[Rfam]
RNA sequence: CCUACCAAAGGUAAACCCGGCGAAAGCUGGGGGCGCAAAGCCAUGGGGCCUAAAGCGGUUAAUCCGCUACGGCAGCCCGGCUGCUGGGG
Numbered sequence: 001c002c003u004a005c006c007a008a009a010g011g012u013a014a015a016c017c018c019g020g021c022g023a024a025a026g027c028u029g030g031g032g033g034c035g036c037a038a039a040g041c042c043a044u045g046g047g048g049c050c051u052a053a054a055g056c057g058g059u060u061a062a063u064c065c066g067c068u069a070c071g072g073c074a075g076c077c078c079g080g081c082u083g084c085u086g087g088g089g
Stems, first nucleotide, its partner, number of pairs: 001089001003086002011036002016031006034075001039082004045078003048073003
RNA: c-di-GMP-I-GGC riboswitch aptamer
Organism: Gelria sp. Kuro-4